[Rfam]
Nucleotides: 086
Stems, first nucleotide, its partner, number of pairs: 002085005008079007016071009027060002
Number, partner (000 for none) and nucleotide at each position: 001000c002085u003084g004083u005082g006081c007000c008079u009078g010077g011076c012075u013074c014073c015000c016071u017070g018069u019068a020067u021066g022065c023064c024063a025000c026000a027060c028059a029000u030000a031000u032000g033000g034000u035000u036000c037000a038000c039000u040000c041000u042000a043000u044000u045000c046000a047000g048000a049000u050000u051000g052000g053000c054000u055000a056000u057000u058000c059028u060027g061000g062000g063024u064023g065022g066021c067020g068019u069018g070017c071016g072000u073014g074013g075012a076011g077010u078009c079008a080000a081006g082005c083004a084003c085002g086000a

The record is an 86-nucleotide RNA from Dendrobium nobile, which matches "mir-160 microRNA precursor family" in Rfam. It scores 70 bits against the family's covariance model. On this family, see Rhoades et al., Cell 2002: "Prediction of plant microRNA targets". NCBI's taxonomy places the organism under Eukaryota, Streptophytina, Euphyllophyta, Asparagales, Dendrobium. Gene Ontology terms of the family: miRNA-mediated post-transcriptional gene silencing and RISC complex.